RNA: L31-Actinobacteria ribosomal protein leader
RNA sequence: UCGGUUCCGGUUCACGUGUGCGACCUCGCAGGCGACCCGGCGACC
Dot-bracket structure: ..(((.((((....(((.((((....)))).)))..))))..)))